mir-320 microRNA precursor family: a 74-nucleotide sequence from Carlito syrichta.
A search with the family's covariance model found it, with a score of 56 bits.
[Rfam]
RNA sequence: AAUAAAUUUGUUCCUCUUCCCAGUUCUUCCUGAAGUUGGGUAAAGUUGGGUUGAGAGGGGGGAAAAUAGAAAAA
Numbered sequence: 001a002a003u004a005a006a007u008u009u010g011u012u013c014c015u016c017u018u019c020c021c022a023g024u025u026c027u028u029c030c031u032g033a034a035g036u037u038g039g040g041u042a043a044a045g046u047u048g049g050g051u052u053g054a055g056a057g058g059g060g061g062g063a064a065a066a067u068a069g070a071a072a073a074a
Stems, first nucleotide, its partner, number of pairs: 012057001014055003019050005027042001029040004